[Rfam]
RNA sequence: CUAGAUAUAAAGGAAUUUAUAUUAAUGAACUAUAAGAAGUCAGCAGAAGGCAUAGUAGGUAUGGGAACAUACUGAAGGCC
Numbered sequence: 001c002u003a004g005a006u007a008u009a010a011a012g013g014a015a016u017u018u019a020u021a022u023u024a025a026u027g028a029a030c031u032a033u034a035a036g037a038a039g040u041c042a043g044c045a046g047a048a049g050g051c052a053u054a055g056u057a058g059g060u061a062u063g064g065g066a067a068c069a070u071a072c073u074g075a076a077g078g079c080c
Base pairs, nucleotide, nucleotide: 001027004023005022006021007020008019009018010017011016040047041046049080050079051078058073059072060071061070062069063068

Group II catalytic intron D1-D4-1: an 80-nucleotide RNA. Pairs were carried over by alignment from the consensus structure. The match comes from Rfam's covariance-model search (68 bits).